[Rfam]
RNA: Small nucleolar RNA SNORD66
Organism: Conger conger
RNA sequence: CUCCAUUGAUGACCUCCAUUUUGUGCCACGUGUCUGGGCCACUGAUCUCAAGUGAUGGAUAUGAGGAACUGAGGAG
Numbered sequence: 001c002u003c004c005a006u007u008g009a010u011g012a013c014c015u016c017c018a019u020u021u022u023g024u025g026c027c028a029c030g031u032g033u034c035u036g037g038g039c040c041a042c043u044g045a046u047c048u049c050a051a052g053u054g055a056u057g058g059a060u061a062u063g064a065g066g067a068a069c070u071g072a073g074g075a076g
Stems, first nucleotide, its partner, number of pairs: 001076004